[Rfam]
Notes
Small nucleolar RNA Z159/U59: an 83-nucleotide RNA sequence from Abrus precatorius. The match comes from Rfam's covariance-model search (52 bits). By type it is a C/D-box small nucleolar RNA. Clan: SNORD59 clan. The family has 10 seed sequences and 1,401 matches in Rfam 15.1. The literature on the family includes a 2003 paper in Nucleic Acids Res by Chen et al., "The high diversity of snoRNAs in plants: identification and comparative study of 120 snoRNA genes from Oryza sativa".

RNA sequence: GCCUCCCAGGAUGAACAAAAAGAAAAACUUUCGUUCUUCUUUUGUCUAUGCAGAAAUAUAUUGGAGACCUAAAUUGAGGAGGC
Numbered sequence: 001g002c003c004u005c006c007c008a009g010g011a012u013g014a015a016c017a018a019a020a021a022g023a024a025a026a027a028c029u030u031u032c033g034u035u036c037u038u039c040u041u042u043u044g045u046c047u048a049u050g051c052a053g054a055a056a057u058a059u060a061u062u063g064g065a066g067a068c069c070u071a072a073a074u075u076g077a078g079g080a081g082g083c
Base pairs, nucleotide, nucleotide: 003081004080005079006078